[Rfam]
RNA sequence: CGCGCAGCUCCAUACUUCUUUACAUUCCAUAUGACUUCAAAUACUAUGGGAAGUAAGGAAGCACGGAACUCGCGC
Number, nucleotide and partner (000 for none) at each position: 001c000002g000003c000004g000005c000006a000007g069008c000009u067010c066011c065012a000013u063014a000015c061016u060017u059018c058019u057020u056021u055022a054023c053024a000025u051026u000027c049028c048029a047030u046031a045032u000033g000034a000035c000036u000037u000038c000039a000040a000041a000042u000043a000044c000045u031046a030047u029048g028049g027050g000051a025052a000053g023054u022055a021056a020057g019058g018059a017060a016061g015062c000063a013064c000065g011066g010067a009068a000069c007070u000071c000072g000073c000074g000075c000